[Rfam]
RNA sequence: GUAAAGAUUAAAUUUGUCUUUUUUAGCUUACACAGCCAGACACCAUGCAAAAGUAGUCUUCCCUUUAAAAUGGCUAUGAUGGUAUGCCAAGUUUUCUCAUAGCAUAUCAUUACUAAAAGUGGACACACAU
Number, nucleotide and partner (000 for none) at each position: 001g048002u047003a046004a000005a000006g043007a000008u000009u000010a000011a000012a000013u000014u035015u034016g033017u032018c000019u030020u000021u000022u000023u000024u000025a000026g000027c000028u000029u000030a019031c000032a017033c016034a015035g014036c000037c000038a000039g000040a000041c000042a000043c006044c000045a000046u003047g002048c001049a000050a000051a000052a000053g000054u000055a000056g000057u000058c000059u123060u122061c121062c119063c000064u117065u116066u115067a114068a000069a000070a000071u000072g000073g000074c000075u000076a000077u112078g111079a110080u109081g108082g107083u106084a105085u104086g103087c102088c000089a100090a000091g000092u000093u000094u000095u000096c000097u000098c000099a000100u089101a000102g087103c086104a085105u084106a083107u082108c081109a080110u079111u078112a077113c000114u067115a066116a065117a064118a000119g062120u000121g061122g060123a059124c000125a000126c000127a000128c000129a000130u000